This 249-nucleotide RNA sequence from Clostridium saccharobutylicum belongs to the Rfam family "T-box leader". Rfam's curators write: Uncharged tRNA acts as the effector for transcription antitermination of genes in the T-box leader family. The family has 48 seed sequences and 19,395 matches in Rfam 15.1. The organism belongs to Clostridium saccharobutylicum, within Bacteria.

RNA sequence: AAAAAAACGAUGAUUAGGAAAAGUAUCUUUGAUAUUAUUUUUAGAGAGUAGUUGGUUGGUGCGAAGCUAUAAUGAGUCUUAGAGAAAAUCACCUAGGAGUUGGAGACUGAAAGGUAAAGCUACUGAAUAAGUUAUCACGUAAGAGCCUGCGUUAAAGGAUAGAGUAUGUAUGUACUUGAAUUAGAACAUUUAAUUUUACAAUUAAAUGUUUAACCUUAGGUGGUUUGCGAAUUCAACUUCGUCCUGUGG
Numbered sequence: 001a002a003a004a005a006a007a008c009g010a011u012g013a014u015u016a017g018g019a020a021a022a023g024u025a026u027c028u029u030u031g032a033u034a035u036u037a038u039u040u041u042u043a044g045a046g047a048g049u050a051g052u053u054g055g056u057u058g059g060u061g062c063g064a065a066g067c068u069a070u071a072a073u074g075a076g077u078c079u080u081a082g083a084g085a086a087a088a089u090c091a092c093c094u095a096g097g098a099g100u101u102g103g104a105g106a107c108u109g110a111a112a113g114g115u116a117a118a119g120c121u122a123c124u125g126a127a128u129a130a131g132u133u134a135u136c137a138c139g140u141a142a143g144a145g146c147c148u149g150c151g152u153u154a155a156a157g158g159a160u161a162g163a164g165u166a167u168g169u170a171u172g173u174a175c176u177u178g179a180a181u182u183a184g185a186a187c188a189u190u191u192a193a194u195u196u197u198a199c200a201a202u203u204a205a206a207u208g209u210u211u212a213a214c215c216u217u218a219g220g221u222g223g224u225u226u227g228c229g230a231a232u233u234c235a236a237c238u239u240c241g242u243c244c245u246g247u248g249g
Stems, first nucleotide, its partner, number of pairs: 007100002015095004026083003031078001037073003048070006103136002105133004138151003185210010217246004227242005